[Rfam]
RNA sequence: CCGUGCUAGACGGGGAGUUAGCGGUGCCCUGUAACCUGCAAUCCGCUAUAGCAGGGUGUAAUCCCUAACCGAGGCUUGAACUUUCAGGGUCUGACCCUUAAAAGUGACGUUGAUAAGUGGGUCCCACGCAACGGAUGUCUAUGAACCUCGUCAGGACCGGAAGGUAGCAGCGAUAAAUAGAAUUUUUCGUGUGCCGUGGCAAACCUAUUUUGAGUUUACUGUUCGGGUAACGCUUGAACGUUUACUGAACGGAGUUAGGUGCACGG
Numbered sequence: 001c002c003g004u005g006c007u008a009g010a011c012g013g014g015g016a017g018u019u020a021g022c023g024g025u026g027c028c029c030u031g032u033a034a035c036c037u038g039c040a041a042u043c044c045g046c047u048a049u050a051g052c053a054g055g056g057u058g059u060a061a062u063c064c065c066u067a068a069c070c071g072a073g074g075c076u077u078g079a080a081c082u083u084u085c086a087g088g089g090u091c092u093g094a095c096c097c098u099u100a101a102a103a104g105u106g107a108c109g110u111u112g113a114u115a116a117g118u119g120g121g122u123c124c125c126a127c128g129c130a131a132c133g134g135a136u137g138u139c140u141a142u143g144a145a146c147c148u149c150g151u152c153a154g155g156a157c158c159g160g161a162a163g164g165u166a167g168c169a170g171c172g173a174u175a176a177a178u179a180g181a182a183u184u185u186u187u188c189g190u191g192u193g194c195c196g197u198g199g200c201a202a203a204c205c206u207a208u209u210u211u212g213a214g215u216u217u218a219c220u221g222u223u224c225g226g227g228u229a230a231c232g233c234u235u236g237a238a239c240g241u242u243u244a245c246u247g248a249a250c251g252g253a254g255u256u257a258g259g260u261g262c263a264c265g266g
Base pairs, nucleotide, nucleotide: 001266002265003264004263005262006261008059010057011056012030013029014028015027017025018024019023035055036054037053038052039051064259065258066257067256068255069254073250076248077247079242080241081240083238084237085236086235087234088233092232093231096227097226098225100223101222104219105218106216107215108214115210116209117208118207119206120205121204122203124199125198126197127196128195129191130190132189133188134187135186138181139180140179141178142177148173149172150171151170156165157164158163
Background:
Rfam assigns this 266-nucleotide sequence from Proteiniclasticum aestuarii to the family "Bacterial large signal recognition particle RNA". By type it is a non-coding RNA gene. A search with the family's covariance model found it, with a score of 188 bits. The organism belongs to Proteiniclasticum, within Bacteria. Rfam links the family to the GO terms signal recognition particle, plasma membrane targeting and SRP-dependent cotranslational protein targeting to membrane, signal sequence recognition.